[Rfam]
Shown here is an 80-nucleotide RNA from Betta splendens, a member of the family "Small nucleolar RNA SNORD74". Clan: SNORD74 clan. NCBI's taxonomy places the organism under Eukaryota, Eumetazoa, Teleostei, Clupeocephala, Betta.
RNA sequence: CCCAUGGCUAAAUGAUGAAAUCUGUUGGUAGGGACAUCUGAGUAAACGUGAAAGAAUGCCAACUUUUCUGAUUGCAUGGG
Numbered sequence: 001c002c003c004a005u006g007g008c009u010a011a012a013u014g015a016u017g018a019a020a021u022c023u024g025u026u027g028g029u030a031g032g033g034a035c036a037u038c039u040g041a042g043u044a045a046a047c048g049u050g051a052a053a054g055a056a057u058g059c060c061a062a063c064u065u066u067u068c069u070g071a072u073u074g075c076a077u078g079g080g
Stems, first nucleotide, its partner, number of pairs: 001080005